[Rfam]
RNA: Metazoan signal recognition particle RNA
Organism: Paramuricea clavata
RNA sequence: GCUGGGCGUGGUGGCGUGCGCCUGUAACCGAGCUACUACGGAGCGGGUAGUGUCGAAUGACUUGAGGUCGGGACUCCUGUCGUACGUCGAUCUAUGUCGAUCGGGUGUCCACACUAAGUUGGGCGCCAAUAUGGUGAACUUAGGGGAACCUUCGUUCACCAGGUUGAAUAAAGAGGAACGUACCGGUCCAGGAUGGAAACAUAGCAGACAAAAGUUCCCGCGUCAAACAGUAGUGGGAUAGCACUUGUGAAUAGGAGGCGUGCGACAGCCCGGUCAAGAUAGUUGAACCCGCUACCCU
Numbered sequence: 001g002c003u004g005g006g007c008g009u010g011g012u013g014g015c016g017u018g019c020g021c022c023u024g025u026a027a028c029c030g031a032g033c034u035a036c037u038a039c040g041g042a043g044c045g046g047g048u049a050g051u052g053u054c055g056a057a058u059g060a061c062u063u064g065a066g067g068u069c070g071g072g073a074c075u076c077c078u079g080u081c082g083u084a085c086g087u088c089g090a091u092c093u094a095u096g097u098c099g100a101u102c103g104g105g106u107g108u109c110c111a112c113a114c115u116a117a118g119u120u121g122g123g124c125g126c127c128a129a130u131a132u133g134g135u136g137a138a139c140u141u142a143g144g145g146g147a148a149c150c151u152u153c154g155u156u157c158a159c160c161a162g163g164u165u166g167a168a169u170a171a172a173g174a175g176g177a178a179c180g181u182a183c184c185g186g187u188c189c190a191g192g193a194u195g196g197a198a199a200c201a202u203a204g205c206a207g208a209c210a211a212a213a214g215u216u217c218c219c220g221c222g223u224c225a226a227a228c229a230g231u232a233g234u235g236g237g238a239u240a241g242c243a244c245u246u247g248u249g250a251a252u253a254g255g256a257g258g259c260g261u262g263c264g265a266c267a268g269c270c271c272g273g274u275c276a277a278g279a280u281a282g283u284u285g286a287a288c289c290c291g292c293u294a295c296c297c298u
Stems, first nucleotide, its partner, number of pairs: 001044003004023007028041003046296007058285005066275007077268012091255005097249001102247007109237002112235005118228003122224005127166004132161008142151003175218005186209003193202003